Background:
MIR827 microRNA precursor family: a 101-nucleotide sequence from Phoenix dactylifera. The organism belongs to Phoenix, within Eukaryota.
RNA sequence: AUGUGUUUUGCUGAUGGUCAUCUAAUCAUCUUCAAAUCUUCUCUUCCCCUCUUUAAUUUGAAGCGUGAAGACAUGGUUAGAUGACCAUCAGCAAACGCAUU
Numbered sequence: 001a002u003g004u005g006u007u008u009u010g011c012u013g014a015u016g017g018u019c020a021u022c023u024a025a026u027c028a029u030c031u032u033c034a035a036a037u038c039u040u041c042u043c044u045u046c047c048c049c050u051c052u053u054u055a056a057u058u059u060g061a062a063g064c065g066u067g068a069a070g071a072c073a074u075g076g077u078u079a080g081a082u083g084a085c086c087a088u089c090a091g092c093a094a095a096c097g098c099a100u101u
Stems, first nucleotide, its partner, number of pairs: 005096004010092020031071001